The record is a 118-nucleotide sequence from Micrococcus sp. HMSC067E09, which matches "SAM (S-adenosyl methionine) riboswitch aptamer" in Rfam. Lineage of the source: Bacteria > Bacillati > Actinomycetes > Micrococcaceae > Micrococcus. The family's consensus secondary structure is taken from published work. From the family's description: SAM-IV is a mRNA element that regulates gene expression via direct sensing of S-adenosylmethionine (SAM or AdoMet). SAM-IV riboswitches share conserved nucleotide positions with the previously described SAM-I riboswitches sequence analysis and molecular recognition experiments suggest that SAM-I and SAM-IV riboswitches share similar ligand binding sites, but have different scaffolds.
[Rfam]
RNA sequence: GGUCACGAGAGCCAGCACCAGUGCCCCGGCAUUCUGGCCGGCAACCCUCCCCACCGCGGCGGGGUGCCCCGGGUGACGACCAGGCCGGCCCCAGACCGGGGCCCGGCAAGCGCGGUCG
Numbered sequence: 001g002g003u004c005a006c007g008a009g010a011g012c013c014a015g016c017a018c019c020a021g022u023g024c025c026c027c028g029g030c031a032u033u034c035u036g037g038c039c040g041g042c043a044a045c046c047c048u049c050c051c052c053a054c055c056g057c058g059g060c061g062g063g064g065u066g067c068c069c070c071g072g073g074u075g076a077c078g079a080c081c082a083g084g085c086c087g088g089c090c091c092c093a094g095a096c097c098g099g100g101g102c103c104c105g106g107c108a109a110g111c112g113c114g115g116u117c118g
Base pairs, nucleotide, nucleotide: 001081002080003079004078009039011038012037013036014035015034022031023030040068041067042066045064046063047062049059050058084107085106086105087104088103090101091100092099